[Rfam]
RNA sequence: GGCCCGAUGCCACGUCUCCGAUAGCUUCUAGCAUUGACCGGAGAUGCUACAUUGGGCCGAGAAAGAGUUGCAAGACGUUUCACAUUUUGAUAGGAACCUGUGGCUGUUAUUCAGUCGGUACACAGAGCCGGUUGUUGUGAUUAUAUUU
Numbered sequence: 001g002g003c004c005c006g007a008u009g010c011c012a013c014g015u016c017u018c019c020g021a022u023a024g025c026u027u028c029u030a031g032c033a034u035u036g037a038c039c040g041g042a043g044a045u046g047c048u049a050c051a052u053u054g055g056g057c058c059g060a061g062a063a064a065g066a067g068u069u070g071c072a073a074g075a076c077g078u079u080u081c082a083c084a085u086u087u088u089g090a091u092a093g094g095a096a097c098c099u100g101u102g103g104c105u106g107u108u109a110u111u112c113a114g115u116c117g118g119u120a121c122a123c124a125g126a127g128c129c130g131g132u133u134g135u136u137g138u139g140a141u142u143a144u145a146u147u148u
Stems, first nucleotide, its partner, number of pairs: 002057008013046006020039001022037001024032003080140005093129002098125003102121001103119003

The family of this 148-nucleotide sequence from Brachypodium distachyon is "Small nucleolar RNA snoR2/U65". The family's consensus secondary structure was predicted with WAR. On this family, see Shaw et al., J Cell Sci 1998: "Localization and processing from a polycistronic precursor of novel snoRNAs in maize". The family has 11 seed sequences and 908 matches in Rfam 15.1. Rfam links the family to the GO terms RNA processing and nucleolus. It is annotated as an H/ACA-box small nucleolar RNA. The family is grouped with related families in Rfam's "SNORA65 clan".